[Rfam]
RNA sequence: ACCAAAACAAAGAUCUGUGUUCGGCGAUCCUGGCCAGUUUCCCUCUGCUCUGCAGGGGUGCAAUUGUGUCCGGUUGAUUACUGAGCAGCUCGACGACAAAGGAGCCAUCCUCUUAGCCAUGGUGUCAAUUUCCUGUCGACAGAUCUGAGAUCGAUGAACAGCUCUCAGUCCCCUCUUUCCUUGAGUUUCCAAUCUCACGAUUGGUGAGCUCGGUUGGAGAUCUGAGUUGCUGUCGGCGUCAUAUUCCCACUCCCUUUACCGAUUUGGCCGUCGGCUGCUGAGGUUAGGGAAAAACCAUGACCAGCCAACAUUC
Numbered sequence: 001a002c003c004a005a006a007a008c009a010a011a012g013a014u015c016u017g018u019g020u021u022c023g024g025c026g027a028u029c030c031u032g033g034c035c036a037g038u039u040u041c042c043c044u045c046u047g048c049u050c051u052g053c054a055g056g057g058g059u060g061c062a063a064u065u066g067u068g069u070c071c072g073g074u075u076g077a078u079u080a081c082u083g084a085g086c087a088g089c090u091c092g093a094c095g096a097c098a099a100a101g102g103a104g105c106c107a108u109c110c111u112c113u114u115a116g117c118c119a120u121g122g123u124g125u126c127a128a129u130u131u132c133c134u135g136u137c138g139a140c141a142g143a144u145c146u147g148a149g150a151u152c153g154a155u156g157a158a159c160a161g162c163u164c165u166c167a168g169u170c171c172c173c174u175c176u177u178u179c180c181u182u183g184a185g186u187u188u189c190c191a192a193u194c195u196c197a198c199g200a201u202u203g204g205u206g207a208g209c210u211c212g213g214u215u216g217g218a219g220a221u222c223u224g225a226g227u228u229g230c231u232g233u234c235g236g237c238g239u240c241a242u243a244u245u246c247c248c249a250c251u252c253c254c255u256u257u258a259c260c261g262a263u264u265u266g267g268c269c270g271u272c273g274g275c276u277g278c279u280g281a282g283g284u285u286a287g288g289g290a291a292a293a294a295c296c297a298u299g300a301c302c303a304g305c306c307a308a309c310a311u312u313c
Stems, first nucleotide, its partner, number of pairs: 011146008019086006026079004030073004034068001036065004041058003045055004094138005101126002104123003159229002164226005179213002183211006189204006235306003238301005251290005258284003266276004
A member of the RNA family "A. fumigatus sRNA Afu_309" from Talaromyces atroroseus, 313 nucleotides long. The match comes from Rfam's covariance-model search (223 bits).